RNA sequence: UAUUUUUAUAUAUUUGUCUUAUGAAAACAACAAUAAACAAUACUUGGUGGUGGAACAUUUUACGUCAAUAGUCGUGAACUAAGCUCCUAUAGUAUUAUUUUUAAUAUAAAUAUAAAAAGGCUUGUC
Numbered sequence: 001u002a003u004u005u006u007u008a009u010a011u012a013u014u015u016g017u018c019u020u021a022u023g024a025a026a027a028c029a030a031c032a033a034u035a036a037a038c039a040a041u042a043c044u045u046g047g048u049g050g051u052g053g054a055a056c057a058u059u060u061u062a063c064g065u066c067a068a069u070a071g072u073c074g075u076g077a078a079c080u081a082a083g084c085u086c087c088u089a090u091a092g093u094a095u096u097a098u099u100u101u102u103a104a105u106a107u108a109a110a111u112a113u114a115a116a117a118a119g120g121c122u123u124g125u126c
Stems, first nucleotide, its partner, number of pairs: 036100002040095005047088001049087002052084001057080001059078003062072002
Dot-bracket structure: ...................................((..(((((..(.((.(....(.(((((.......))...))).)...).)))..)))))...))..........................
This 126-nucleotide sequence from Flavobacterium crassostreae belongs to the Rfam family "Bacteroidete tryptophan peptide leader RNA". The match comes from Rfam's covariance-model search (67 bits). Pairs were carried over by alignment from the consensus structure, which is taken from published work.